[Rfam]
RNA: Eukaryotic small subunit ribosomal RNA, nucleotides 1736 to 1880
Organism: Cavenderia deminutiva
RNA sequence: CCGCCCGUCGCUCCUACCGAUCGAACGUCCAGGUAAAGUCGACGGACUGUCUUCGAAAGUUGAUAGAAAGUCCAUUGAACCUCGUCGUUUAGAGGAAGGAGAAGUCGUAACAAGGUAUCGGUAGGUGAACCUGCAGAAGGAUCAA
Numbered sequence: 001c002c003g004c005c006c007g008u009c010g011c012u013c014c015u016a017c018c019g020a021u022c023g024a025a026c027g028u029c030c031a032g033g034u035a036a037a038g039u040c041g042a043c044g045g046a047c048u049g050u051c052u053u054c055g056a057a058a059g060u061u062g063a064u065a066g067a068a069a070g071u072c073c074a075u076u077g078a079a080c081c082u083c084g085u086c087g088u089u090u091a092g093a094g095g096a097a098g099g100a101g102a103a104g105u106c107g108u109a110a111c112a113a114g115g116u117a118u119c120g121g122u123a124g125g126u127g128a129a130c131c132u133g134c135a136g137a138a139g140g141a142u143c144a145a
Base pairs, nucleotide, nucleotide: 001114003111006107007106009104011101012100013099014098015097017095018094021091023090024089025088026087027086029084031082032081033080034079037076038075039074041072042071043070047066048065049064050063051062054059116139118137119136121134122133123132124131125130